[Rfam]
RNA sequence: GGUCGCGGUCCGGCACGACGUAAAGGCAAAAGCCCGGGGAAAGUACCCCUCCCAACCCCUCCGGCCUCCCCGUCGCCCCACCACCCAUACGGGUGACAUAUGCCAACUCGGUUGGGAUUGGGGCGGGUUGAGCGGCAUAUGCUCGCCGCGUCACGUGCACCACCGCACACAUGCUUCGGCCCCCGGCCGGGACGGCAAUCCCGAACGAGGGCCUGACCACCCAGGAAGAAAUCACCUUCCCG
Numbered sequence: 001g002g003u004c005g006c007g008g009u010c011c012g013g014c015a016c017g018a019c020g021u022a023a024a025g026g027c028a029a030a031a032g033c034c035c036g037g038g039g040a041a042a043g044u045a046c047c048c049c050u051c052c053c054a055a056c057c058c059c060u061c062c063g064g065c066c067u068c069c070c071c072g073u074c075g076c077c078c079c080a081c082c083a084c085c086c087a088u089a090c091g092g093g094u095g096a097c098a099u100a101u102g103c104c105a106a107c108u109c110g111g112u113u114g115g116g117a118u119u120g121g122g123g124c125g126g127g128u129u130g131a132g133c134g135g136c137a138u139a140u141g142c143u144c145g146c147c148g149c150g151u152c153a154c155g156u157g158c159a160c161c162a163c164c165g166c167a168c169a170c171a172u173g174c175u176u177c178g179g180c181c182c183c184c185g186g187c188c189g190g191g192a193c194g195g196c197a198a199u200c201c202c203g204a205a206c207g208a209g210g211g212c213c214u215g216a217c218c219a220c221c222c223a224g225g226a227a228g229a230a231a232u233c234a235c236c237u238u239c240c241c242g
Base pairs, nucleotide, nucleotide: 001221002220003219005218011072012071013070082095083094084093085092086091111147113145114144115143178213179212180211181210182209184207185206189202190201191200192199224240225239226238227237228236